A member of the RNA family "Plastid-rpl20 3UTR RNA" from Camellia sinensis, 86 nucleotides long. The family has 270 seed sequences and 587 matches in Rfam 15.1. Pairs were carried over by alignment from the consensus structure, which was predicted with LocARNA. From the family's description: Plastid rpl20 is a non-coding RNA (ncRNA) recognised in plastids.
[Rfam]
RNA sequence: AUGGAGUUCCCCGGAGAAUGAACUCCGGGGAGGUAGAGUAGAAAUUAAUAUGAUAAAAUAGUCAAAAUAAAUGAACACGUUCAAAA
Number, nucleotide and partner (000 for none) at each position: 001a000002u000003g000004g000005a000006g000007u031008u030009c000010c029011c028012c027013g026014g025015a024016g023017a000018a000019u000020g000021a000022a000023c016024u015025c014026c013027g012028g011029g010030g008031a007032g000033g000034u000035a000036g000037a000038g000039u000040a000041g000042a000043a000044a000045u000046u000047a000048a000049u000050a000051u000052g000053a000054u000055a000056a000057a000058a000059u000060a000061g000062u000063c000064a000065a000066a000067a000068u000069a000070a081071a080072u079073g000074a000075a000076c000077a000078c000079g072080u071081u070082c000083a000084a000085a000086a000